[Rfam]
RNA sequence: GUCGGACUGCUGUGUUGGUGACGGCCUUUUCUAGUGCUCUGAUCUGACUCUCUAUCGACUUGGGGCGACUGCCGUGUCGGUGCCGUAAACCGGCCUUGUAGCCGGAAACGAAUCCCCACUUUUGUUACCCCUUCUGGUUCUUCCAGGUCGAUCACUGGGGCUCGCACGGCAUGGUGGUCCCCCA
Number, nucleotide and partner (000 for none) at each position: 001g000002u000003c000004g180005g179006a178007c177008u176009g175010c174011u173012g172013u171014g170015u169016u000017g000018g167019u166020g000021a000022c000023g000024g000025c000026c000027u000028u000029u000030u000031c000032u000033a000034g000035u154036g153037c000038u151039c000040u150041g149042a148043u147044c146045u145046g000047a000048c000049u000050c000051u000052c000053u000054a000055u000056c000057g000058a000059c000060u000061u000062g131063g130064g129065g000066c000067g126068a125069c124070u000071g122072c000073c000074g121075u000076g119077u118078c000079g116080g115081u000082g000083c000084c000085g109086u108087a000088a000089a000090c105091c104092g103093g102094c101095c000096u000097u000098g000099u000100a000101g094102c093103c092104g091105g090106a000107a000108a086109c085110g000111a000112a000113u000114c000115c080116c079117c000118a077119c076120u000121u074122u071123u000124g069125u068126u067127a000128c000129c064130c063131c062132u000133u000134c000135u000136g000137g000138u000139u000140c000141u000142u000143c000144c000145a045146g044147g043148u042149c041150g040151a038152u000153c036154a035155c000156u000157g000158g000159g000160g000161c000162u000163c000164g000165c000166a019167c018168g000169g015170c014171a013172u012173g011174g010175u009176g008177g007178u006179c005180c004181c000182c000183c000184a000
RNA: 6S / SsrS RNA